[Rfam]
The family of this 263-nucleotide part of an RNA from uncultured euryarchaeote Alv-FOS5 is "Archaeal large subunit ribosomal RNA". It is one of the family's seed sequences. NCBI's taxonomy places the organism under Archaea, Methanobacteriati, Methanobacteriota. The family is grouped with related families in Rfam's "LSU clan".
RNA sequence: GAGUUGGUGGUCAUGGCGAGGCUAAGCCCUAGAAAGGGUGGAGCCGUAGGGAAACCGAUAGCCCGCAGACCUUUUGGUUCAGGGGCAGGGUCUGAAAGGGCCCGUAGUCAUGGCUGCCAGACCGGAAUCCCGGCGAUCUACGCCUGGCUAGGGUGAAGUCGGCCAACAGGCUGAUGGAGGCCCGCUAGGGGUUCUGAGCUCAACUCGUUCCCGUGAGCUGGGUGUAGGGGUGAAAGUCCAAUCGAGCCGGGGGAUAGCCGGUU
Numbered sequence: 001g002a003g004u005u006g007g008u009g010g011u012c013a014u015g016g017c018g019a020g021g022c023u024a025a026g027c028c029c030u031a032g033a034a035a036g037g038g039u040g041g042a043g044c045c046g047u048a049g050g051g052a053a054a055c056c057g058a059u060a061g062c063c064c065g066c067a068g069a070c071c072u073u074u075u076g077g078u079u080c081a082g083g084g085g086c087a088g089g090g091u092c093u094g095a096a097a098g099g100g101c102c103c104g105u106a107g108u109c110a111u112g113g114c115u116g117c118c119a120g121a122c123c124g125g126a127a128u129c130c131c132g133g134c135g136a137u138c139u140a141c142g143c144c145u146g147g148c149u150a151g152g153g154u155g156a157a158g159u160c161g162g163c164c165a166a167c168a169g170g171c172u173g174a175u176g177g178a179g180g181c182c183c184g185c186u187a188g189g190g191g192u193u194c195u196g197a198g199c200u201c202a203a204c205u206c207g208u209u210c211c212c213g214u215g216a217g218c219u220g221g222g223u224g225u226a227g228g229g230g231u232g233a234a235a236g237u238c239c240a241a242u243c244g245a246g247c248c249g250g251g252g253g254a255u256a257g258c259c260g261g262u263u
Base pairs, nucleotide, nucleotide: 005119006118007117008116009115010114011113012112013111014110015109016108017107020045021044022043023042026039027038028037029036049056050055061086062085063084064083068079069078070077071076089102090101091100092099122261123260125258129251130250131249132248133247134246138227139226140225141224142223143222144221145220146219147218148217149215151183152182153181154180158175159174160173161172162171163170164169188212189211190210191209194207196206197205229239230238